[Rfam]
RNA sequence: GCGCGCCGCGCGUCAACCGGACGCGGCGGCAUGGGGAACGGAGAUGGUUUUUCCGGUUUCCCGCUCCGGCCAACGAAGUGGCAGCCGAGCCCCUGUCCCGCCCGUUGG
Numbered sequence: 001g002c003g004c005g006c007c008g009c010g011c012g013u014c015a016a017c018c019g020g021a022c023g024c025g026g027c028g029g030c031a032u033g034g035g036g037a038a039c040g041g042a043g044a045u046g047g048u049u050u051u052u053c054c055g056g057u058u059u060c061c062c063g064c065u066c067c068g069g070c071c072a073a074c075g076a077a078g079u080g081g082c083a084g085c086c087g088a089g090c091c092c093c094u095g096u097c098c099c100g101c102c103c104g105u106u107g108g
Base pairs, nucleotide, nucleotide: 006107008105009104011023012022013021014020025102026101027100028098029097033093034092035091036090039068040067041066042065043064046062069082070081071080
Dot-bracket structure: .....(.((.((((.....)))).(((((...((((..(((((..(...............).)))))(((........))).......))))...)).))).)).).

Source information: The family of this 108-nucleotide RNA sequence from Devosia enhydra is "Rhizobiales sRNA Atu_At1". On this family, see Wilms et al., RNA Biol 2012: "Deep sequencing uncovers numerous small RNAs on all four replicons of the plant pathogen Agrobacterium tumefaciens". Pairs were carried over by alignment from the consensus structure, which was predicted with CMfinder. It scores 92 bits against the family's covariance model.